A member of the RNA family "permuted transfer-messenger RNA" from Methyloceanibacter caenitepidi, 268 nucleotides long.
[Rfam]
RNA sequence: GGCACUCAACCUCUAGUCAGAAGCACGACGGACUCCGGGGCAGUACCGGACAGGUCCACCACGAACCGAUGGCCUUUGGCCACCUCGUCAACAACGCCCCCCGUCGUGCCGAACGGCCGGGGUCGUCGGUUCUUGAUGGGCCUGAAACAGGAUCGACGGCGUGAGGACGAUUAAAGCUGUGCUCGGCCUGACCUACCGCAACGGGUCAAACCUUGGAACUGCGAACGACAAUCGCAAUCCCGCCGAGGCCAUGCCGCUCGCGGCGUAG
Number, nucleotide and partner (000 for none) at each position: 001g183002g182003c181004a180005c179006u000007c000008a000009a000010c000011c000012u000013c000014u173015a172016g171017u170018c000019a000020g000021a000022a000023g000024c163025a162026c161027g000028a000029c158030g157031g000032a000033c000034u050035c049036c048037g047038g046039g000040g000041c000042a000043g000044u000045a000046c038047c037048g036049g035050a034051c144052a143053g142054g141055u140056c139057c138058a000059c000060c000061a000062c000063g000064a000065a000066c000067c000068g000069a000070u000071g000072g000073c000074c000075u000076u000077u000078g000079g000080c000081c000082a000083c000084c000085u000086c000087g000088u000089c000090a000091a000092c000093a000094a000095c000096g000097c000098c000099c000100c000101c000102c000103g000104u000105c000106g000107u000108g000109c000110c000111g000112a000113a000114c000115g000116g000117c000118c000119g000120g000121g000122g000123u000124c000125g000126u000127c000128g000129g000130u000131u000132c000133u000134u000135g000136a000137u000138g057139g056140g055141c054142c053143u052144g051145a000146a000147a000148c000149a000150g000151g000152a000153u000154c000155g000156a000157c030158g029159g000160c000161g026162u025163g024164a000165g000166g000167a000168c000169g000170a017171u016172u015173a014174a000175a000176g000177c000178u000179g005180u004181g003182c002183u001184c198185g197186g196187c000188c000189u000190g000191a000192c000193c000194u000195a000196c186197c185198g184199c000200a000201a000202c000203g000204g000205g000206u000207c000208a000209a000210a000211c000212c000213u000214u000215g000216g000217a000218a000219c000220u000221g000222c000223g000224a000225a000226c000227g000228a000229c000230a000231a000232u000233c000234g000235c000236a000237a000238u000239c000240c000241c000242g000243c000244c000245g000246a000247g000248g000249c000250c000251a000252u000253g000254c000255c000256g000257c000258u000259c000260g000261c000262g000263g000264c000265g000266u000267a000268g000
Pairs were carried over by alignment from the consensus structure, which is taken from published work.